[Rfam]
RNA sequence: AACUUAUCCAGAAAGACGGAGGGAAUGGACCCGAUGAUGUCUUAGCAACCUUUUCAGUGACAAUGAAGAAAGAAAAAAGAUAAUAAAAUAUUCAUUCUCAUUAUCAAUUUAUCAUUGAAUUACGGUGCUACUUUCCACUUAAGAGCCAUAACUCUUAAGGAAGAUAAGGA
Numbered sequence: 001a002a003c004u005u006a007u008c009c010a011g012a013a014a015g016a017c018g019g020a021g022g023g024a025a026u027g028g029a030c031c032c033g034a035u036g037a038u039g040u041c042u043u044a045g046c047a048a049c050c051u052u053u054u055c056a057g058u059g060a061c062a063a064u065g066a067a068g069a070a071a072g073a074a075a076a077a078a079g080a081u082a083a084u085a086a087a088a089u090a091u092u093c094a095u096u097c098u099c100a101u102u103a104u105c106a107a108u109u110u111a112u113c114a115u116u117g118a119a120u121u122a123c124g125g126u127g128c129u130a131c132u133u134u135c136c137a138c139u140u141a142a143g144a145g146c147c148a149u150a151a152c153u154c155u156u157a158a159g160g161a162a163g164a165u166a167a168g169g170a
Base pairs, nucleotide, nucleotide: 003168004167005166006165007164008163013043014042015041016040017039021032022031023030026137027136028135029134044129045128046127047126049125050124053119054118055117056116057115058114059113060112133162138159139158140157141156142155143154144153145152